[Rfam]
RNA sequence: GGAUGACUGAUUUCCUCUGGUGCUUAGAAUCCAUGCCAUCUUCUAGCACCAUUUGAAAUCGGUUAUAA
Numbered sequence: 001g002g003a004u005g006a007c008u009g010a011u012u013u014c015c016u017c018u019g020g021u022g023c024u025u026a027g028a029a030u031c032c033a034u035g036c037c038a039u040c041u042u043c044u045a046g047c048a049c050c051a052u053u054u055g056a057a058a059u060c061g062g063u064u065a066u067a068a
Stems, first nucleotide, its partner, number of pairs: 003066002005063001007062008018051005025045004
The record is a 68-nucleotide sequence from Chanos chanos, which matches "mir-29 microRNA precursor family" in Rfam. From the family's description: This family represents the microRNA (miRNA) precursors mir-29. It scores 64 bits against the family's covariance model. On this family, see Ambros, Cell 2001: "microRNAs: tiny regulators with great potential".